[Rfam]
RNA: TPP riboswitch aptamer (THI element)
Organism: Leucobacter luti
RNA sequence: UGUGGAGCACACGGGAGUCCGGUAGGCCGGGCUGAGAGGAAAGUACUCAACUUUCGACCGUCGAACCUGAUCUGGAUCAUGCCAGCGCAGGGAGACACUCUUCACUACCCG
Numbered sequence: 001u002g003u004g005g006a007g008c009a010c011a012c013g014g015g016a017g018u019c020c021g022g023u024a025g026g027c028c029g030g031g032c033u034g035a036g037a038g039g040a041a042a043g044u045a046c047u048c049a050a051c052u053u054u055c056g057a058c059c060g061u062c063g064a065a066c067c068u069g070a071u072c073u074g075g076a077u078c079a080u081g082c083c084a085g086c087g088c089a090g091g092g093a094g095a096c097a098c099u100c101u102u103c104a105c106u107a108c109c110c111g
Base pairs, nucleotide, nucleotide: 006099007098011061012060013059014058017032018031019030020029021028039055040054041053042052043051066091067090068089069088072085073084074083075082